The family of this 80-nucleotide RNA from Silurus meridionalis is "Small nucleolar RNA SNORD83". Its family is annotated with nucleolus and RNA processing in the Gene Ontology. The family's RNA type in Rfam is C/D-box small nucleolar RNA. On this family, see Jady and Kiss, Nucleic Acids Res 2000: "Characterisation of the U83 and U84 small nucleolar RNAs: two novel 2'-O-ribose methylation guide RNAs that lack complementarities to ribosomal RNAs". Lineage of the source: Eukaryota > Metazoa > Bilateria > Chordata > Silurus.
RNA sequence: GCCACAUGAUGUCAUUUAGAUUGCAUUAGCGCUCUUUUGUGCUGAGAUGACCUCCUAUCUAUCACCCUAGACUGAUGGCU
Numbered sequence: 001g002c003c004a005c006a007u008g009a010u011g012u013c014a015u016u017u018a019g020a021u022u023g024c025a026u027u028a029g030c031g032c033u034c035u036u037u038u039g040u041g042c043u044g045a046g047a048u049g050a051c052c053u054c055c056u057a058u059c060u061a062u063c064a065c066c067c068u069a070g071a072c073u074g075a076u077g078g079c080u
Base pairs, nucleotide, nucleotide: 001079002078003077004076029042030041031040032039